RNA sequence: GUGUUUUUCAUGGUAUUAGAUUAUUAAGGUUAAGGAAGCAUAGAGAGUCGUGAGAUUGUCUAUGCUUUUUUUCG
Number, nucleotide and partner (000 for none) at each position: 001g000002u000003g000004u000005u000006u000007u000008u000009c000010a000011u000012g000013g000014u000015a000016u000017u000018a000019g000020a000021u000022u000023a000024u000025u000026a000027a000028g000029g000030u000031u000032a000033a000034g000035g000036a000037a000038g000039c000040a000041u000042a000043g060044a059045g000046a057047g056048u055049c054050g000051u000052g000053a000054g049055a048056u047057u046058g000059u044060c043061u000062a000063u000064g000065c000066u000067u000068u000069u000070u000071u000072u000073c000074g000
Bacteroidetes FopS (family of paralogous sRNAs): a 74-nucleotide sequence from Prevotella sp. 885. A reference for the family is Ruttiger et al. (2025), "The global RNA-binding protein RbpB is a regulator of polysaccharide utilization in Bacteroides thetaiotaomicron", Nat Commun. The RNA-binding protein RbpB and BTncRNA_FopS sRNA are involved in the post-transcription regulation of polysaccharide utilisation loci (PUL). FopS sRNAs function as post-transcriptional repressors by binding to the vicinity of the start codon of the first mRNA of target PUL polycistrons, typically corresponding to the cognate SusC homolog, impeding translation of the respective glycan transporter. Taxonomically the source falls in Prevotella (Bacteria, Bacteroidia, Bacteroidales, Prevotellaceae). The match comes from Rfam's covariance-model search (57 bits). Rfam classes the family as a small RNA.